[Rfam]
RNA sequence: AAUUAAAAAAGAGGUUGCGGAGAUUAAAAGUAACUUAGACGAGAACGACGUAUUUGAUGACUCUAAGCGAAAGGAUGAUUCGCCGAAAUGCUAGUGUAACGUCAAUCAUUAGUGUUGGGACUUGGAAUAACAUUUCAAGAACUGUCGCGAUUUAUUUUGCGGAGCGCUUUUCAAUAA
Numbered sequence: 001a002a003u004u005a006a007a008a009a010a011g012a013g014g015u016u017g018c019g020g021a022g023a024u025u026a027a028a029a030g031u032a033a034c035u036u037a038g039a040c041g042a043g044a045a046c047g048a049c050g051u052a053u054u055u056g057a058u059g060a061c062u063c064u065a066a067g068c069g070a071a072a073g074g075a076u077g078a079u080u081c082g083c084c085g086a087a088a089u090g091c092u093a094g095u096g097u098a099a100c101g102u103c104a105a106u107c108a109u110u111a112g113u114g115u116u117g118g119g120a121c122u123u124g125g126a127a128u129a130a131c132a133u134u135u136c137a138a139g140a141a142c143u144g145u146c147g148c149g150a151u152u153u154a155u156u157u158u159g160c161g162g163a164g165c166g167c168u169u170u171u172c173a174a175u176a177a
Base pairs, nucleotide, nucleotide: 007171008170009169010168011167017083018082019081020080021079025075034067035066036065037064038063039062087116088115089114090113091112092111093110094109095108096107117143118142121139122138123137124136125135126134127133145162146161147160148159149158150157
Dot-bracket structure: ......(((((.....(((((...(........((((((......................)))))).......)...)))))...((((((((((..........))))))))))((..(((((((.....)))))))..)).((((((......))))))....)))))......

Shown here is a 177-nucleotide RNA sequence from Pediococcus claussenii, a member of the family "Lysine riboswitch aptamer".
The family's consensus secondary structure is taken from published work.
NCBI's taxonomy places the organism under Bacteria, Bacillota, Bacilli, Pediococcus, Pediococcus claussenii.
Rfam's curators write: Riboswitches are metabolite binding domains within certain messenger RNAs that serve as precision sensors for their corresponding targets.